[Rfam]
RNA sequence: GCGCCGGUUUAGCCAUGCGGUUACUUCCUGAAAAAUUCUUCAACCAUUGCCCGUAAUCCGGGAUCGAACCGCAGGCGCUGUCUGGCGUUUUU
Number, nucleotide and partner (000 for none) at each position: 001g000002c087003g086004c085005c084006g083007g082008u000009u000010u000011a000012g076013c075014c074015a000016u000017g072018c071019g070020g069021u000022u000023a000024c000025u068026u067027c066028c000029u000030g000031a000032a000033a000034a000035a000036u000037u000038c000039u000040u000041c000042a000043a000044c000045c000046a000047u000048u000049g000050c000051c000052c000053g000054u000055a000056a000057u000058c000059c000060g000061g000062g000063a000064u000065c000066g027067a026068a025069c020070c019071g018072c017073a000074g014075g013076c012077g000078c000079u000080g000081u000082c007083u006084g005085g004086c003087g002088u000089u000090u000091u000092u000
RNA: Vault RNA